[Rfam]
RNA sequence: GGUAUUGUUUACCCCACGAUAGGCCCCGGAAAAUCUAUUGAGUGUGUAAACAAACA
Numbered sequence: 001g002g003u004a005u006u007g008u009u010u011a012c013c014c015c016a017c018g019a020u021a022g023g024c025c026c027c028g029g030a031a032a033a034u035c036u037a038u039u040g041a042g043u044g045u046g047u048a049a050a051c052a053a054a055c056a
Base pairs, nucleotide, nucleotide: 006052007051008050009049010048011047012046017040018039019038020037021036022035023034
A member of the RNA family "Ribosomal protein L13 leader" from Lactobacillus selangorensis, 56 nucleotides long.
The source organism's lineage runs through Bacteria, Bacillati, Bacilli, Lactobacillales and Lactobacillus.
The literature on the family includes a 1994 paper in Prog Nucleic Acid Res Mol Biol by Zengel and Lindahl, "Diverse mechanisms for regulating ribosomal protein synthesis in Escherichia coli".
Rfam describes the family as follows. This family is a putative r-protein leader autoregulatory structure found in B. subtilis and other low-GC Gram-positive bacteria. It is located in the 5' untranslated regions of mRNAs encoding the L13-S9 (rplM-rpsI) ribosomal protein operon.
The base pairs follow the family's consensus structure, which was predicted with CMfinder.